[Rfam]
RNA sequence: GGCUCUUAGUGUUCACGGCGGUCCUUAAUUUAACAUUGUGCAAUUAAGGCACGCGGUGAAUGCCAAGAACA
Numbered sequence: 001g002g003c004u005c006u007u008a009g010u011g012u013u014c015a016c017g018g019c020g021g022u023c024c025u026u027a028a029u030u031u032a033a034c035a036u037u038g039u040g041c042a043a044u045u046a047a048g049g050c051a052c053g054c055g056g057u058g059a060a061u062g063c064c065a066a067g068a069a070c071a
Stems, first nucleotide, its partner, number of pairs: 004068003009063008018054003023049008
This 71-nucleotide RNA from Branchiostoma floridae belongs to the Rfam family "mir-124 microRNA precursor family". Pairs were carried over by alignment from the consensus structure, which was predicted with PFOLD. Rfam 15.1 lists 2,215 matches to the family in 905 species. A reference for the family is Lai et al. (2003), "Computational identification of Drosophila microRNA genes", Genome Biol. NCBI's taxonomy places the organism under Eukaryota, Eumetazoa, Bilateria, Cephalochordata, Branchiostoma.